Source information
A member of the RNA family "c-di-GMP-I riboswitch aptamer" from Serpentinicella alkaliphila, 94 nucleotides long. Lineage of the source: Bacteria > Bacillati > Clostridia > Peptostreptococcales > Serpentinicella. A search with the family's covariance model found it, with a score of 82 bits. The family's consensus secondary structure is taken from published work.

RNA sequence: CACUGUAAAAGGCAAACCUAUUUAAAGAUAGGGACGCAAAGCCAUGGGUCUAAGGAUGAUAUCAAUAAAUAUCUAUGAUUGCCAGGUUACCGAA
Numbered sequence: 001c002a003c004u005g006u007a008a009a010a011g012g013c014a015a016a017c018c019u020a021u022u023u024a025a026a027g028a029u030a031g032g033g034a035c036g037c038a039a040a041g042c043c044a045u046g047g048g049u050c051u052a053a054g055g056a057u058g059a060u061a062u063c064a065a066u067a068a069a070u071a072u073c074u075a076u077g078a079u080u081g082c083c084a085g086g087u088u089a090c091c092g093a094a
Stems, first nucleotide, its partner, number of pairs: 012037002017032006040088004045084003048079003055073004